Shown here is a 139-nucleotide RNA sequence from Colobus angolensis, a member of the family "U4 spliceosomal RNA". Lineage of the source: Eukaryota > Gnathostomata > Sarcopterygii > Euarchontoglires > Colobus angolensis. The family's RNA type in Rfam is spliceosomal small nuclear RNA. Its family is annotated with spliceosomal tri-snRNP complex assembly and U4 snRNP in the Gene Ontology.
[Rfam]
RNA sequence: ACCUCUGCACCGUGGCAGUAUCAUAGUCAGUGAGGUUUAUCUAAUGUGUGAUUACUGCUAAUUGAAAACUUCCCAAUAUCUCACCGUGAUGACUUGAAACGUACUCAGCAUGGGCAAUUUUUGAGUGUCUUUAUGGAGA
Numbered sequence: 001a002c003c004u005c006u007g008c009a010c011c012g013u014g015g016c017a018g019u020a021u022c023a024u025a026g027u028c029a030g031u032g033a034g035g036u037u038u039a040u041c042u043a044a045u046g047u048g049u050g051a052u053u054a055c056u057g058c059u060a061a062u063u064g065a066a067a068a069c070u071u072c073c074c075a076a077u078a079u080c081u082c083a084c085c086g087u088g089a090u091g092a093c094u095u096g097a098a099a100c101g102u103a104c105u106c107a108g109c110a111u112g113g114g115c116a117a118u119u120u121u122u123g124a125g126u127g128u129c130u131u132u133a134u135g136g137a138g139a
Stems, first nucleotide, its partner, number of pairs: 020052005026047002034042002084114002086111003090107003094103001128139004